[Rfam]
Nucleotides: 758
Stems, first nucleotide, its partner, number of pairs: 008021005026052011061080004066075001099145007110125005116135005149181004155175005165205005189217001191215008220254005226238004242444006278305003281301003316327004350391004355386001359380003363377003404417004448614003455610004471512007484500006521556010561599006568590009619641005626635003642660005649687004665681006696732007703719002706715003743757003
Number, partner (000 for none) and nucleotide at each position: 001000g002000g003000a004000u005000a006000a007000u008021c009020c010019c011018a012017g013000g014000u015000g016000a017012c018011u019010g020009g021008g022000g023000a024000a025000a026052g027051g028050u029049c030048g031047g032046g033045u034044c035043a036042g037000g038000c039000u040000g041000g042036u043035u044034g045033g046032c047031c048030c049029g050028g051027c052026u053000c054000c055000u056000c057000u058000g059000a060000a061080g062079u063078u064077g065000g066075a067000u068000c069000g070000a071000a072000a073000g074000g075066u076000a077064u078063g079062a080061u081000g082000a083000g084000g085000a086000g087000g088000c089000a090000g091000a092000a093000u094000u095000c096000a097000c098000c099145a100144g101143u102142u103141c104140c105139u106000c107000u108000g109000g110125c111124g112123g113122u114121g115000u116135u117134c118133g119132c120131a121114c122113a123112c124111c125110g126000u127000c128000a129000a130000a131120u132119g133118c134117g135116a136000a137000u138000g139105a140104g141103g142102g143101a144100c145099u146000u147000g148000g149181c150180g151179g152178c153000g154000a155175g156174g157173g158172g159171c160000g161000a162000u163000g164000a165205g166204a167203a168202g169201c170000c171159g172158c173157u174156c175155c176000g177000a178152g179151c180150c181149g182000g183000g184000u185000c186000a187000a188000g189217u190000a191215g192214u193213u194212c195211a196210g197209g198208c199000c200000g201169g202168u203167u204166u205165c206000g207000a208198g209197c210196c211195u212194g213193g214192g215191c216000g217189a218000a219000u220254c221253g222252c223251a224250g225000u226238u227237a228236c229235c230000c231000a232000g233000a234000g235229g236228g237227u238226a239000u240000c241000c242444g243443g244442u245441u246440g247439c248000u249000a250224c251223u252222g253221c254220g255000c256000a257000u258000c259000a260000g261000c262000a263000c264000g265000g266000a267000c268000g269000g270000g271000c272000g273000a274000c275000u276000c277000u278305g279304g280303c281301g282300g283299u284000c285000a286000c287000g288000c289000a290000a291000a292000a293000a294000a295000c296000g297000g298000g299283a300282u301281c302000a303280g304279c305278c306000a307000a308000a309000a310000g311000a312000a313000a314000g315000a316327c317326g318325c319324c320000g321000a322000a323000a324319g325318g326317c327316g328000g329000g330000a331000c332000a333000a334000a335000a336000u337000g338000a339000g340000c341000g342000u343000u344000c345000g346000c347000a348000c349000c350391g351390g352389g353388a354000a355386g356000g357000a358000c359380a360379c361378g362000a363377c364376g365375g366000c367000u368000c369000g370000a371000c372000a373000g374000g375365c376364u377363g378361c379360g380359u381000g382000a383000a384000a385000a386355c387000c388353u389352u390351c391350c392000a393000a394000g395000c396000g397000u398000c399000g400000g401000c402000g403000a404417u405416g406415u407414u408000a409000a410000a411000a412000a413000c414407g415406a416405c417404a418000c419000c420000g421000c422000u423000g424000g425000g426000c427000u428000g429000u430000g431000a432000g433000c434000a435000a436000a437000a438000g439247g440246c441245a442244a443243c444242c445000u446000g447000a448614g449613a450612g451000u452000g453000a454000a455610g456609a457608g458607g459000c460000g461000a462000g463000a464000c465000c466000c467000g468000u469000g470000g471512u472511a473510u474509c475508g476507g477506g478000c479000g480000a481000a482000c483000g484500c485499a486498c487497c488496g489495u490000c491000a492000a493000a494000a495489g496488c497487g498486g499485u500484g501000g502000c503000u504000g505000a506477c507476c508475c509474g510473g511472u512471g513000c514000u515000a516000a517000g518000u519000g520000g521556u522555g523554a524553a525552g526551a527550c528549g529548c530547g531000a532000a533000g534000a535000u536000c537000a538000a539000a540000u541000c542000a543000c544000a545000g546000a547530u548529g549528u550527g551526u552525c553524u554523u555522c556521a557000u558000c559000u560000g561599g562598u563597u564596u565595g566594c567000a568590a569589g570588c571587u572586g573585g574584u575583g576582g577000c578000g579000c580000a581000a582576c583575c584574a585573u586572c587571a588570g589569u590568u591000c592000a593000a594566g595565c596564a597563g598562g599561c600000u601000g602000a603000a604000a605000a606000g607458c608457c609456u610455c611000a612450c613449u614448c615000g616000a617000a618000a619641u620640c621639c622638a623637g624000c625000g626635g627634c628633c629000g630000c631000a632000a633628g634627g635626c636000a637623c638622u639621g640620g641619a642660c643659g644658g645657c646656c647000c648000u649687g650686c651685c652684a653000c654000g655000a656646g657645g658644c659643c660642g661000a662000a663000g664000a665681c666680u667679c668678c669677g670676c671000u672000u673000g674000c675000c676670g677669u678668g679667g680666a681665g682000a683000a684652u685651g686650g687649c688000g689000u690000c691000g692000g693000g694000a695000a696732g697731c698730u699729g700728a701727c702726a703719g704718c705000c706715c707714c708713c709000g710000a711000a712000a713708g714707g715706g716000g717000c718704g719703u720000g721000c722000c723000u724000a725000a726702u727701g728700u729699c730698g731697g732696c733000a734000u735000g736000g737000g738000a739000a740000a741000g742000a743757g744756a745755g746000c747000u748000u749000g750000g751000c752000g753000c754000a755745c756744u757743c758000c

The record is a 758-nucleotide RNA, which matches "MISL RNA" in Rfam. The base pairs follow the family's consensus structure, which is taken from published work. Rfam classes the family as a small RNA.